[Rfam]
RNA: mir-320 microRNA precursor family
RNA sequence: UUUGAAAACGGCCUUCUCUUUCUGGUUCUUCCCAGAGUUGAGAAAAGCUGGGUUGAGAGGGCAAAAAAAUAUAUAU
Numbered sequence: 001u002u003u004g005a006a007a008a009c010g011g012c013c014u015u016c017u018c019u020u021u022c023u024g025g026u027u028c029u030u031c032c033c034a035g036a037g038u039u040g041a042g043a044a045a046a047g048c049u050g051g052g053u054u055g056a057g058a059g060g061g062c063a064a065a066a067a068a069a070u071a072u073a074u075a076u
Base pairs, nucleotide, nucleotide: 014059015058016057017056018055021052022051023050024049025048029044030043031042033040034039